RNA sequence: GCUUCGGUUGCUUCGGCAGCCGGGAUAAACAGAAUAAUAAAUGAAAUUCCUCUUUGACGGGCCAAUAGAAAUAUUGGCCAUUUUUUU
Numbered sequence: 001g002c003u004u005c006g007g008u009u010g011c012u013u014c015g016g017c018a019g020c021c022g023g024g025a026u027a028a029a030c031a032g033a034a035u036a037a038u039a040a041a042u043g044a045a046a047u048u049c050c051u052c053u054u055u056g057a058c059g060g061g062c063c064a065a066u067a068g069a070a071a072u073a074u075u076g077g078c079c080a081u082u083u084u085u086u087u
Stems, first nucleotide, its partner, number of pairs: 007020005029038001060079008

Notes
A member of the RNA family "sroB RNA" from Beauveria bassiana, 87 nucleotides long. It scores 72 bits against the family's covariance model. Rfam classes the family as a small RNA. The literature on the family includes a 2003 paper in Nucleic Acids Res by Vogel et al., "RNomics in Escherichia coli detects new sRNA species and indicates parallel transcriptional output in bacteria".